[Rfam]
RNA sequence: UGCAAGUCCCAGCAACGGAGUAGUUCCCCACUCAGAGAUUACUUUACCACAUUCCAAAUUC
Numbered sequence: 001u002g003c004a005a006g007u008c009c010c011a012g013c014a015a016c017g018g019a020g021u022a023g024u025u026c027c028c029c030a031c032u033c034a035g036a037g038a039u040u041a042c043u044u045u046a047c048c049a050c051a052u053u054c055c056a057a058a059u060u061c
Stems, first nucleotide, its partner, number of pairs: 017045009027035001